[Rfam]
RNA: 6S / SsrS RNA
Organism: Syntrophothermus lipocalidus
RNA sequence: UAGACCCUGCUGUGUUCGUGAUAAACCGGUUAAUUUUGGCCCAACACCAAAAUAUAGGGAGCCUGGACUCUGGGUGUGGCUUGCAGGCCCUCGAUGGGAGGGAAGCAUAAAGCAUCCAGGAGGGCACCCACCUGCGUGGGACGCAGGUUCAAAAUAACCGGUUACACACGACUCGGUGGGGCUUUU
Numbered sequence: 001u002a003g004a005c006c007c008u009g010c011u012g013u014g015u016u017c018g019u020g021a022u023a024a025a026c027c028g029g030u031u032a033a034u035u036u037u038g039g040c041c042c043a044a045c046a047c048c049a050a051a052a053u054a055u056a057g058g059g060a061g062c063c064u065g066g067a068c069u070c071u072g073g074g075u076g077u078g079g080c081u082u083g084c085a086g087g088c089c090c091u092c093g094a095u096g097g098g099a100g101g102g103a104a105g106c107a108u109a110a111a112g113c114a115u116c117c118a119g120g121a122g123g124g125c126a127c128c129c130a131c132c133u134g135c136g137u138g139g140g141a142c143g144c145a146g147g148u149u150c151a152a153a154a155u156a157a158c159c160g161g162u163u164a165c166a167c168a169c170g171a172c173u174c175g176g177u178g179g180g181g182c183u184u185u186u
Stems, first nucleotide, its partner, number of pairs: 002184002005181008014172002017170003033155007041147002057129003061125004068119001071118007083106002088102005